Small nucleolar RNA Z159/U59: an 86-nucleotide RNA sequence from Durio zibethinus. Its family is annotated with RNA processing and nucleolus in the Gene Ontology. The family has 10 seed sequences and 1,401 matches in Rfam 15.1. The family is grouped with related families in Rfam's "SNORD59 clan". The match comes from Rfam's covariance-model search (64 bits).

RNA sequence: GCCUCUGAUGAUUAUUGGAAAUGAACAUUUUCGUUCUUCCGAGAAAGUCGAUGCGGAAAAUAUCUGGAGACCUGAACUGAAGAGGC
Numbered sequence: 001g002c003c004u005c006u007g008a009u010g011a012u013u014a015u016u017g018g019a020a021a022u023g024a025a026c027a028u029u030u031u032c033g034u035u036c037u038u039c040c041g042a043g044a045a046a047g048u049c050g051a052u053g054c055g056g057a058a059a060a061u062a063u064c065u066g067g068a069g070a071c072c073u074g075a076a077c078u079g080a081a082g083a084g085g086c
Stems, first nucleotide, its partner, number of pairs: 003084004